[Rfam]
RNA sequence: UGAAUAGUCCGGUAGAUAAGGUUACCACAGGGAUAAGGAUUGCUGCCGCGAAAUAGUGGAGACACUAUUAGUUGGUUAGCAGGCUAUGUCGAAUCCAAGGCAUAAUCUAAUGCAAUUUCAAGAUGACUCCAGUCAUUGCGCCCUGUGAAGCUAAAGUUUGAACGGUAGUAUAGUAGA
Numbered sequence: 001u002g003a004a005u006a007g008u009c010c011g012g013u014a015g016a017u018a019a020g021g022u023u024a025c026c027a028c029a030g031g032g033a034u035a036a037g038g039a040u041u042g043c044u045g046c047c048g049c050g051a052a053a054u055a056g057u058g059g060a061g062a063c064a065c066u067a068u069u070a071g072u073u074g075g076u077u078a079g080c081a082g083g084c085u086a087u088g089u090c091g092a093a094u095c096c097a098a099g100g101c102a103u104a105a106u107c108u109a110a111u112g113c114a115a116u117u118u119c120a121a122g123a124u125g126a127c128u129c130c131a132g133u134c135a136u137u138g139c140g141c142c143c144u145g146u147g148a149a150g151c152u153a154a155a156g157u158u159u160g161a162a163c164g165g166u167a168g169u170a171u172a173g174u175a176g177a
Base pairs, nucleotide, nucleotide: 005173007171008170010168011163013098015158016157017156020152021151022150026147027146028145029144030143031142032141039116040115041114042113043112045076046075047074048073055066056065057064058063082107083106085104088101089100090099